[Rfam]
A member of the RNA family "ALIL pseudoknot" from Noviherbaspirillum galbum, 119 nucleotides long. The family has 26 seed sequences and 2,146 matches in Rfam 15.1. Its family is annotated with positive regulation of translational frameshifting in the Gene Ontology. The source organism's lineage runs through Bacteria, Pseudomonadati, Burkholderiales, Oxalobacteraceae and Noviherbaspirillum.
RNA sequence: CGCUUUUUUCGCCUAGGCUAAGCUCGGCCGCCGAUUCAAGUCCUGAAGUAUUUCUUCGAUUGCCAUCGCGAUACGUAUGGAGUCGAACCGCUGUGCAAGGUCUUGGAACAGGCGCUCUA
Numbered sequence: 001c002g003c004u005u006u007u008u009u010c011g012c013c014u015a016g017g018c019u020a021a022g023c024u025c026g027g028c029c030g031c032c033g034a035u036u037c038a039a040g041u042c043c044u045g046a047a048g049u050a051u052u053u054c055u056u057c058g059a060u061u062g063c064c065a066u067c068g069c070g071a072u073a074c075g076u077a078u079g080g081a082g083u084c085g086a087a088c089c090g091c092u093g094u095g096c097a098a099g100g101u102c103u104u105g106g107a108a109c110a111g112g113c114g115c116u117c118u119a
Stems, first nucleotide, its partner, number of pairs: 016032003078119005089114002092110002094107001096105003